Shown here is a 202-nucleotide sequence from Paramagnetospirillum magneticum, a member of the family "RT-15 RNA".

RNA sequence: GAGCGCCUGAUGCCCGAAGGUCAAGGCCUUCGCGCCCGUGCGCAUCAUUUGGUCGGGGUAGCGGCCCCUCCCGAUGCAUACGGGGUCGCUCCAGGCGCCGAUGGGAUACGGCGGGUGCUCCCCCGCGCGUCCCGGCGCAGCUCGGCCGGCGUCGAUGAGGGGACUCAAUCGCCGGCCCGGCCUGUACACCCCCGACAGGACU
Numbered sequence: 001g002a003g004c005g006c007c008u009g010a011u012g013c014c015c016g017a018a019g020g021u022c023a024a025g026g027c028c029u030u031c032g033c034g035c036c037c038g039u040g041c042g043c044a045u046c047a048u049u050u051g052g053u054c055g056g057g058g059u060a061g062c063g064g065c066c067c068c069u070c071c072c073g074a075u076g077c078a079u080a081c082g083g084g085g086u087c088g089c090u091c092c093a094g095g096c097g098c099c100g101a102u103g104g105g106a107u108a109c110g111g112c113g114g115g116u117g118c119u120c121c122c123c124c125g126c127g128c129g130u131c132c133c134g135g136c137g138c139a140g141c142u143c144g145g146c147c148g149g150c151g152u153c154g155a156u157g158a159g160g161g162g163a164c165u166c167a168a169u170c171g172c173c174g175g176c177c178c179g180g181c182c183u184g185u186a187c188a189c190c191c192c193c194g195a196c197a198g199g200a201c202u
Stems, first nucleotide, its partner, number of pairs: 004042003012035002015032007053195006060090009095138004102134004108130002111126005141180002144177008157166003
It is annotated as a small RNA.
Rfam's curators put it in the seed alignment.